A member of the RNA family "TPP riboswitch aptamer (THI element)" from Fodinibius roseus, 96 nucleotides long. Taxonomically the source falls in Fodinibius (Bacteria, Pseudomonadati, Balneolota, Balneolia). A search with the family's covariance model found it, with a score of 68 bits. The base pairs follow the family's consensus structure, which is taken from published work.

RNA sequence: ACCCACGGUUGGGGGUGCUUGCAACAGCAGGCUGAGAUCAUACCCUGAGAACCUGACCCGGAUAACACCGGCGUAGGGAAACCAGGCAGCAGUAAA
Numbered sequence: 001a002c003c004c005a006c007g008g009u010u011g012g013g014g015g016u017g018c019u020u021g022c023a024a025c026a027g028c029a030g031g032c033u034g035a036g037a038u039c040a041u042a043c044c045c046u047g048a049g050a051a052c053c054u055g056a057c058c059c060g061g062a063u064a065a066c067a068c069c070g071g072c073g074u075a076g077g078g079a080a081a082c083c084a085g086g087c088a089g090c091a092g093u094a095a096a
Stems, first nucleotide, its partner, number of pairs: 007083004011046004016040001017032005052077004058071004